A member of the RNA family "SAM riboswitch aptamer (S box leader)" from Caulobacter sp. 17J65-9, 106 nucleotides long.
A search with the family's covariance model found it, with a score of 87 bits.
Pairs were carried over by alignment from the consensus structure, which is taken from published work.
The organism belongs to Caulobacter, within Bacteria.

RNA sequence: CACUCAUCGAGACCGACCGAGGGACAGGCCCUUUGACGUCGGGGCAACCUGCGCUUCGCGCAAGGUGCCAACUCCUGCGGGGACCUCGGUCCGCGACAGAUGAGUG
Numbered sequence: 001c002a003c004u005c006a007u008c009g010a011g012a013c014c015g016a017c018c019g020a021g022g023g024a025c026a027g028g029c030c031c032u033u034u035g036a037c038g039u040c041g042g043g044g045c046a047a048c049c050u051g052c053g054c055u056u057c058g059c060g061c062a063a064g065g066u067g068c069c070a071a072c073u074c075c076u077g078c079g080g081g082g083a084c085c086u087c088g089g090u091c092c093g094c095g096a097c098a099g100a101u102g103a104g105u106g
Base pairs, nucleotide, nucleotide: 001106002105003104004103005102006101007100008099013042014041015040016039017038021031022030023029025077026076027075028074043069044068045067046066048065049064050062051061052060053059073098078095079094081092082091083090